[Rfam]
RNA sequence: AUUCCCCAUGAUGGUUUAACCAUGCUAAUACUGAUUUCUUAUGACUGAAUCAAAUUAAGUUAAGAUGCUGAGGGAAUU
Dot-bracket structure: (((((...................................................................))))).
Numbered sequence: 001a002u003u004c005c006c007c008a009u010g011a012u013g014g015u016u017u018a019a020c021c022a023u024g025c026u027a028a029u030a031c032u033g034a035u036u037u038c039u040u041a042u043g044a045c046u047g048a049a050u051c052a053a054a055u056u057a058a059g060u061u062a063a064g065a066u067g068c069u070g071a072g073g074g075a076a077u078u
Stems, first nucleotide, its partner, number of pairs: 001077005